[Rfam]
Nucleotides: 078
Base pairs, nucleotide, nucleotide: 001074002073003072004071005070006069007068008067010066011065014062015061016057018055020053021052026042027041028040030038
Number, partner (000 for none) and nucleotide at each position: 001074a002073g003072u004071u005070g006069g007068u008067u009000c010066a011065a012000a013000g014062g015061u016057u017000g018055u019000g020053g021052g022000u023000u024000a025000u026042u027041g028040u029000u030038a031000a032000g033000u034000u035000g036000a037000c038030u039000a040028a041027c042026a043000c044000u045000g046000u047000c048000u049000c050000c051000u052021c053020c054000a055018a056000a057016a058000a059000c060000c061015a062014c063000c064000c065011u066010u067008g068007a069006c070005u071004a072003g073002c074001u075000c076000u077000a078000a